Record summary
Rfam assigns this 127-nucleotide sequence from Crocuta crocuta to the family "Small nucleolar RNA SNORA32". Gene Ontology terms of the family: RNA processing and nucleolus. Taxonomically the source falls in Crocuta (Eukaryota, Mammalia, Theria, Eutheria).

RNA sequence: CAGUAAUAACAGACAGUUUAUUUGAGAAUGCUGGUUUCUCAUUUGCUGUGGACAUGACCAUAAAAAAUUUUUCCACUAGGCUUUUCUUUAUGCUACUUUGCUAGCGUUCAGCCUAUUGGGAACAUUU
Numbered sequence: 001c002a003g004u005a006a007u008a009a010c011a012g013a014c015a016g017u018u019u020a021u022u023u024g025a026g027a028a029u030g031c032u033g034g035u036u037u038c039u040c041a042u043u044u045g046c047u048g049u050g051g052a053c054a055u056g057a058c059c060a061u062a063a064a065a066a067a068u069u070u071u072u073c074c075a076c077u078a079g080g081c082u083u084u085u086c087u088u089u090a091u092g093c094u095a096c097u098u099u100g101c102u103a104g105c106g107u108u109c110a111g112c113c114u115a116u117u118g119g120g121a122a123c124a125u126u127u
Stems, first nucleotide, its partner, number of pairs: 003058002006055002010051001012049001030046002033044002072120004079113004091106003
The family has 9 seed sequences and 615 matches in Rfam 15.1. Rfam describes the family as follows. ACA32 is a member of the H/ACA class of snoRNA that guide the sites of modification of uridines to pseudouridines.